[Rfam]
RNA sequence: GUAUUCCUUCGGGGCAGGGUGGAAAUCCCUACCGGCGGUGAUGAAACGAAUUGUUUCUUAGUCCGUGACCCGUCUGCUAGUAUUGCAGCCGGUGGACCUGGUGAAACUCCGGGACCGACAGUUAAAGUCUGGAUGGGAGAAGGAAAAA
Numbered sequence: 001g002u003a004u005u006c007c008u009u010c011g012g013g014g015c016a017g018g019g020u021g022g023a024a025a026u027c028c029c030u031a032c033c034g035g036c037g038g039u040g041a042u043g044a045a046a047c048g049a050a051u052u053g054u055u056u057c058u059u060a061g062u063c064c065g066u067g068a069c070c071c072g073u074c075u076g077c078u079a080g081u082a083u084u085g086c087a088g089c090c091g092g093u094g095g096a097c098c099u100g101g102u103g104a105a106a107c108u109c110c111g112g113g114a115c116c117g118a119c120a121g122u123u124a125a126a127g128u129c130u131g132g133a134u135g136g137g138a139g140a141a142g143g144a145a146a147a148a
Stems, first nucleotide, its partner, number of pairs: 004145007017029003031128002033117002035066004061115002070092002097113005119131003
RNA: FMN riboswitch aptamer (RFN element)